[Rfam]
Nucleotides: 080
Base pairs, nucleotide, nucleotide: 029059030058031057032056033055037050038049039048040047
Number, partner (000 for none) and nucleotide at each position: 001000g002000a003000u004000c005000g006000a007000u008000g009000a010000u011000g012000a013000a014000a015000a016000u017000a018000a019000g020000c021000a022000a023000g024000u025000u026000u027000g028000a029059g030058c031057a032056u033055c034000a035000g036000a037050a038049g039048a040047c041000c042000u043000u044000c045000c046000a047040g048039u049038c050037u051000a052000c053000u054000u055033g056032a057031u058030g059029c060000a061000u062000g063000a064000g065000c066000u067000c068000u069000a070000c071000a072000g073000u074000u075000u076000u077000a078000a079000g080000a

A member of the RNA family "Small nucleolar RNA U2-19", 80 nucleotides long. By type it is a C/D-box small nucleolar RNA. The base pairs follow the family's consensus structure, which is taken from published work. A reference for the family is Tycowski et al. (2004), "Guide RNAs with 5' Caps and Novel Box C/D snoRNA-like Domains for Modification of snRNAs in Metazoa", Curr Biol. Rfam's curators put it in the seed alignment.